[Rfam]
RNA: glmS glucosamine-6-phosphate activated ribozyme aptamer
Organism: Sporomusa ovata
RNA sequence: GAUGGAAAAAAAGCGCUGGUGCUUGGAGAGAAACCAAGCAGACGAGGAAGAGGUUUAUCGAGCAGUCAGCGGAUGCCUCUCGGCGACUGCCGUCGUUAGCUGACCGACAAAACUGCAGGGUGACUUGCGGAACAAAACGGCAGCAUGCAGCAUG
Numbered sequence: 001g002a003u004g005g006a007a008a009a010a011a012a013g014c015g016c017u018g019g020u021g022c023u024u025g026g027a028g029a030g031a032a033a034c035c036a037a038g039c040a041g042a043c044g045a046g047g048a049a050g051a052g053g054u055u056u057a058u059c060g061a062g063c064a065g066u067c068a069g070c071g072g073a074u075g076c077c078u079c080u081c082g083g084c085g086a087c088u089g090c091c092g093u094c095g096u097u098a099g100c101u102g103a104c105c106g107a108c109a110a111a112a113c114u115g116c117a118g119g120g121u122g123a124c125u126u127g128c129g130g131a132a133c134a135a136a137a138c139g140g141c142a143g144c145a146u147g148c149a150g151c152a153u154g
Stems, first nucleotide, its partner, number of pairs: 020040007049080005058069001060067002081095005099144004104140002113130007